[Rfam]
Nucleotides: 117
Base pairs, nucleotide, nucleotide: 003071004070005069006068007067009065010064011063012062013061014060015059016058018056021053022052024050025049027047029045031043032042097114098113099112100111101110102109
Number, partner (000 for none) and nucleotide at each position: 001000c002000a003071g004070a005069g006068g007067u008000u009065u010064c011063c012062u013061u014060u015059g016058a017000c018056u019000g020000c021053g022052g023000u024050g025049g026000c027047u028000g029045g030000a031043a032042g033000c034000g035000u036000a037000g038000a039000g040000a041000a042032c043031u044000c045029c046000c047027a048000u049025c050024c051000u052022c053021c054000c055000a056018g057000a058016u059015c060014g061013g062012a063011g064010g065009g066000c067007a068006c069005c070004u071003c072000g073000u074000u075000u076000c077000a078000u079000u080000u081000c082000a083000c084000u085000g086000c087000c088000g089000c090000u091000a092000c093000g094000u095000c096000a097114g098113a099112u100111u101110c102109g103000a104000a105000u106000c107000c108000g109102u110101g111100g112099a113098u114097c115000c116000a117000g

This 117-nucleotide sequence from Nonomuraea zeae belongs to the Rfam family "Actinobacteria sRNA Ms_IGR-7". A reference for the family is Li et al. (2013), "Identification of small RNAs in Mycobacterium smegmatis using heterologous Hfq", RNA. The match comes from Rfam's covariance-model search (48 bits). Rfam classes the family as a small RNA.